[Rfam]
RNA: mir-1204 microRNA precursor family
RNA sequence: GCCUCGUGGCCUGGUCUCCGUUAUAUGAGAGGAGACACAUCUUGAAGGUGAGGACUGCCUCGUGGU
Numbered sequence: 001g002c003c004u005c006g007u008g009g010c011c012u013g014g015u016c017u018c019c020g021u022u023a024u025a026u027g028a029g030a031g032g033a034g035a036c037a038c039a040u041c042u043u044g045a046a047g048g049u050g051a052g053g054a055c056u057g058c059c060u061c062g063u064g065g066u
Base pairs, nucleotide, nucleotide: 002065003064005062006061008059009058010057014055015054016053017052019050020049021048022047024046026044027043028042029041030040032038